RNA sequence: CUAGAAACAAUCUUGCACUUGGGGCUCACAUACGAGUAUUUAUUACUCAACUUAGCCUCGGGAAGGUCUGAGAAAAAGUGUGCUCUAUGCUUGUAUAGAGAACAUCCCAGCAGGAUGCUUCAAUAACUGAAGGUGAAAGAACCAGAAAUUCUGUAAGACUUGAUUUCUUGCAUUGGAAACUUUCAUAACUCGCCGUUUUAGUAUAAUUUGCAAGCUGGACAUUUUAAUAAUGACCAGAACUCAAUUCAGACUAAUCUGUUUCUAG
Numbered sequence: 001c002u003a004g005a006a007a008c009a010a011u012c013u014u015g016c017a018c019u020u021g022g023g024g025c026u027c028a029c030a031u032a033c034g035a036g037u038a039u040u041u042a043u044u045a046c047u048c049a050a051c052u053u054a055g056c057c058u059c060g061g062g063a064a065g066g067u068c069u070g071a072g073a074a075a076a077a078g079u080g081u082g083c084u085c086u087a088u089g090c091u092u093g094u095a096u097a098g099a100g101a102a103c104a105u106c107c108c109a110g111c112a113g114g115a116u117g118c119u120u121c122a123a124u125a126a127c128u129g130a131a132g133g134u135g136a137a138a139g140a141a142c143c144a145g146a147a148a149u150u151c152u153g154u155a156a157g158a159c160u161u162g163a164u165u166u167c168u169u170g171c172a173u174u175g176g177a178a179a180c181u182u183u184c185a186u187a188a189c190u191c192g193c194c195g196u197u198u199u200a201g202u203a204u205a206a207u208u209u210g211c212a213a214g215c216u217g218g219a220c221a222u223u224u225u226a227a228u229a230a231u232g233a234c235c236a237g238a239a240c241u242c243a244a245u246u247c248a249g250a251c252u253a254a255u256c257u258g259u260u261u262c263u264a265g
Stems, first nucleotide, its partner, number of pairs: 001265004007259003012214006021059005034048005068249005077190003103117005118132005133186007215237004220232004

This 265-nucleotide RNA from Clunio marinus belongs to the Rfam family "Nuclear RNase P". Rfam 15.1 lists 3,848 matches to the family in 1,862 species. The match comes from Rfam's covariance-model search (137 bits). A reference for the family is Frank and Pace (1998), "Ribonuclease P: unity and diversity in a tRNA processing ribozyme", Annu Rev Biochem.